[Rfam]
RNA: Rhodo-rpoB RNA
RNA sequence: AGGUCGGAAGAGGCGCGGUGGGACGUGUCUCAAGAAUUGACCGGAUGCUUCCGCUCUUAUGGGCGCACACCACGGCCCCGGUGGUUGGUGCG
Numbered sequence: 001a002g003g004u005c006g007g008a009a010g011a012g013g014c015g016c017g018g019u020g021g022g023a024c025g026u027g028u029c030u031c032a033a034g035a036a037u038u039g040a041c042c043g044g045a046u047g048c049u050u051c052c053g054c055u056c057u058u059a060u061g062g063g064c065g066c067a068c069a070c071c072a073c074g075g076c077c078c079c080g081g082u083g084g085u086u087g088g089u090g091c092g
Stems, first nucleotide, its partner, number of pairs: 002042004010031008064092005069085005